[Rfam]
RNA sequence: GUCGGCACCCCGCGUGGUGGUACCUCUCCGAACUCCCCCAGGGCAGGAAUGCAGCAAGGGUAGGAGAGCUCUUCCAGGUACGCGGGGUGUCCCUUUU
Dot-bracket structure: ...((.(((((((((..(((.(.((((((.....(((.....(((....))).....)))..))))))...).))).)..))))))..)).))....
The family of this 97-nucleotide RNA sequence from Terrabacter aerolatus is "Bacterial small signal recognition particle RNA". A search with the family's covariance model found it, with a score of 67 bits. NCBI's taxonomy places the organism under Bacteria, Bacillati, Micrococcales, Intrasporangiaceae, Terrabacter. Rfam describes the family as follows. The signal recognition particle (SRP) is a universally conserved ribonucleoprotein involved in the co-translational targeting of proteins to membranes.